[Rfam]
RNA sequence: AAAAAGGGCAUCUGUCGUGAUUGACACAGUGAGAGUAGAUCACUCUGGUCUUACUGCGGAAUCGCUAUCAAGAGAUUUCGGAUGCAUAAUUUUUACAAGCCGGGGCUGCUGAUAAUCAUUUAUUUCGGCGCCCCA
Numbered sequence: 001a002a003a004a005a006g007g008g009c010a011u012c013u014g015u016c017g018u019g020a021u022u023g024a025c026a027c028a029g030u031g032a033g034a035g036u037a038g039a040u041c042a043c044u045c046u047g048g049u050c051u052u053a054c055u056g057c058g059g060a061a062u063c064g065c066u067a068u069c070a071a072g073a074g075a076u077u078u079c080g081g082a083u084g085c086a087u088a089a090u091u092u093u094u095a096c097a098a099g100c101c102g103g104g105g106c107u108g109c110u111g112a113u114a115a116u117c118a119u120u121u122a123u124u125u126c127g128g129c130g131c132c133c134c135a
Stems, first nucleotide, its partner, number of pairs: 008085005013026005027056008036047003057080007103133004108129005114124003